[Rfam]
This 68-nucleotide sequence from Geotrypetes seraphini belongs to the Rfam family "mir-367 microRNA precursor family". Its family is annotated with miRNA-mediated post-transcriptional gene silencing and RISC complex in the Gene Ontology. The match comes from Rfam's covariance-model search (85 bits). On this family, see Mineno et al., Nucleic Acids Res 2006: "The expression profile of microRNAs in mouse embryos".
RNA sequence: CCAUUACUGUUGCUAAUGUGCCACUCUGUUUUAUGAAAGUUGGAAUUGCACUUUAGCAAUGGUGAUGG
Numbered sequence: 001c002c003a004u005u006a007c008u009g010u011u012g013c014u015a016a017u018g019u020g021c022c023a024c025u026c027u028g029u030u031u032u033a034u035g036a037a038a039g040u041u042g043g044a045a046u047u048g049c050a051c052u053u054u055a056g057c058a059a060u061g062g063u064g065a066u067g068g
Stems, first nucleotide, its partner, number of pairs: 005064012019050003023046001025044004